mir-H11 microRNA precursor family: a 64-nucleotide RNA sequence from Simplexvirus humanalpha1.

[Rfam]
RNA sequence: GCGAAGCGUUCGCACUUCGUCCCAAUAUAUAUAUAUUAUUAGGGCGAAGUGCGAGCACUGGCGC
Numbered sequence: 001g002c003g004a005a006g007c008g009u010u011c012g013c014a015c016u017u018c019g020u021c022c023c024a025a026u027a028u029a030u031a032u033a034u035a036u037u038a039u040u041a042g043g044g045c046g047a048a049g050u051g052c053g054a055g056c057a058c059u060g061g062c063g064c
Stems, first nucleotide, its partner, number of pairs: 001062002005059002008056015024040004
It is one of the family's seed sequences.